[Rfam]
A member of the RNA family "permuted transfer-messenger RNA" from Muricoccus nepalensis, 249 nucleotides long.
Bacterial tmRNA, also known as 10Sa RNA or SsrA, is named for its dual tRNA and mRNA-like properties. Its role is to liberate the mRNA from a stalled ribosome.
Rfam classes the family as a non-coding RNA gene.
RNA sequence: GGCGAUAAACGGCUCGUGGAAUAAGCGUUGCGGACCCGGGGGCAGUACCCGGCGCCUCCACCAUUCCUUCCCCGCCUUAUCAGCGGGUUCGGCGAAGCCUCCGGGCUUUUCCGAGGGAAGCAUGGGGGCGAAACAGGCUCGACGCGCGCGGUAAAGACGUGUCUUUUGCCCGGCAUUGUACCGCCGUUAUCGGGCUAAAUCACAAGUGCCAACGAUAAUGGUCGCGAGACCAUGGCGCUCGCUGCCUAG
Numbered sequence: 001g002g003c004g005a006u007a008a009a010c011g012g013c014u015c016g017u018g019g020a021a022u023a024a025g026c027g028u029u030g031c032g033g034a035c036c037c038g039g040g041g042g043c044a045g046u047a048c049c050c051g052g053c054g055c056c057u058c059c060a061c062c063a064u065u066c067c068u069u070c071c072c073c074g075c076c077u078u079a080u081c082a083g084c085g086g087g088u089u090c091g092g093c094g095a096a097g098c099c100u101c102c103g104g105g106c107u108u109u110u111c112c113g114a115g116g117g118a119a120g121c122a123u124g125g126g127g128g129c130g131a132a133a134c135a136g137g138c139u140c141g142a143c144g145c146g147c148g149c150g151g152u153a154a155a156g157a158c159g160u161g162u163c164u165u166u167u168g169c170c171c172g173g174c175a176u177u178g179u180a181c182c183g184c185c186g187u188u189a190u191c192g193g194g195c196u197a198a199a200u201c202a203c204a205a206g207u208g209c210c211a212a213c214g215a216u217a218a219u220g221g222u223c224g225c226g227a228g229a230c231c232a233u234g235g236c237g238c239u240c241g242c243u244g245c246c247u248a249g
Base pairs, nucleotide, nucleotide: 001170002169003168004167005166015159016158017157026148027147028146030145031144032143036052037051038050039049040048053130054129055128056127057126058125059124171186172185173184174183